[Rfam]
RNA sequence: CGACCGCUUUUUUAAGCCAAGGCCAGACGGACAGCCGGGUCGGAUGCCGA
Numbered sequence: 001c002g003a004c005c006g007c008u009u010u011u012u013u014a015a016g017c018c019a020a021g022g023c024c025a026g027a028c029g030g031a032c033a034g035c036c037g038g039g040u041c042g043g044a045u046g047c048c049g050a
Base pairs, nucleotide, nucleotide: 001042002041003040004039005038006017007016008015009014
RNA: Streptococcus sRNA SpF59 (ldcC RNA)